[Rfam]
RNA sequence: UAAUUUAUUAACUAUUUUCCUUGUAUAUGUUCAAGAAUAUGGCUUGAACGUCUCUACCGGGCUGCCGUAAAUAGCCUGUCUACAAGGGGCAAUGAUUAGUGU
Numbered sequence: 001u002a003a004u005u006u007a008u009u010a011a012c013u014a015u016u017u018u019c020c021u022u023g024u025a026u027a028u029g030u031u032c033a034a035g036a037a038u039a040u041g042g043c044u045u046g047a048a049c050g051u052c053u054c055u056a057c058c059g060g061g062c063u064g065c066c067g068u069a070a071a072u073a074g075c076c077u078g079u080c081u082a083c084a085a086g087g088g089g090c091a092a093u094g095a096u097u098a099g100u101g102u
Stems, first nucleotide, its partner, number of pairs: 018088008029049007058078007
RNA: Purine riboswitch aptamer
Organism: Neobacillus thermocopriae